This 46-nucleotide sequence from a Neisseriaceae bacterium belongs to the Rfam family "PreQ1 (pre queuosine) riboswitch aptamer". The pairing is the family consensus, mapped onto this sequence.
RNA sequence: ACUUUUGUGGUUCGAAAUCCAUCCCACAAUAAAAAACUAGGAAAAA
Numbered sequence: 001a002c003u004u005u006u007g008u009g010g011u012u013c014g015a016a017a018u019c020c021a022u023c024c025c026a027c028a029a030u031a032a033a034a035a036a037c038u039a040g041g042a043a044a045a046a
Base pairs, nucleotide, nucleotide: 006028007027008026009025010024016038
Rfam links the family to the GO term queuosine biosynthetic process. The literature on the family includes a 2004 paper in J Biol Chem by Reader et al., "Identification of four genes necessary for biosynthesis of the modified nucleoside queuosine".